[Rfam]
RNA sequence: AAAAGGAGCAAUAAUGCCCUUCUUGUUCUAACAAGAGGGCGUUAUUAUUACC
Numbered sequence: 001a002a003a004a005g006g007a008g009c010a011a012u013a014a015u016g017c018c019c020u021u022c023u024u025g026u027u028c029u030a031a032c033a034a035g036a037g038g039g040c041g042u043u044a045u046u047a048u049u050a051c052c
Base pairs, nucleotide, nucleotide: 005051007049008048010046011045012044013043014042015041020037021036022035023034024033025032
The family of this 52-nucleotide RNA is "Plastid-psbA-3 3UTR RNA".
Rfam describes the family as follows. Plastid psbA-3 is a non-coding RNA (ncRNA) present in plastids. It was identified in inverted repeat sequences in the 3 prime untranslate region (3UTR) of photosystem II quinone-binding protein (psbA).
For this family Rfam cites "Retrograde signaling in plants: A critical review focusing on the GUN pathway and beyond" (Richter et al., Plant Commun, 2023).